A member of the RNA family "TPP riboswitch aptamer (THI element)" from Oceanobacillus oncorhynchi, 96 nucleotides long. Pairs were carried over by alignment from the consensus structure, which is taken from published work. The source organism's lineage runs through Bacteria, Bacillota, Bacilli, Bacillaceae and Oceanobacillus.
[Rfam]
RNA sequence: AAGCAACACUAGGGGAGCCUUUGGCUGAGACGAAUACUCGGACCCUUUGAACCUGAUCUGGUUAACACUAGCGUAGGGAAGUGGCAGGAACAUGAC
Numbered sequence: 001a002a003g004c005a006a007c008a009c010u011a012g013g014g015g016a017g018c019c020u021u022u023g024g025c026u027g028a029g030a031c032g033a034a035u036a037c038u039c040g041g042a043c044c045c046u047u048u049g050a051a052c053c054u055g056a057u058c059u060g061g062u063u064a065a066c067a068c069u070a071g072c073g074u075a076g077g078g079a080a081g082u083g084g085c086a087g088g089a090a091c092a093u094g095a096c
Stems, first nucleotide, its partner, number of pairs: 007083004011046004017025003032039002052077004058071004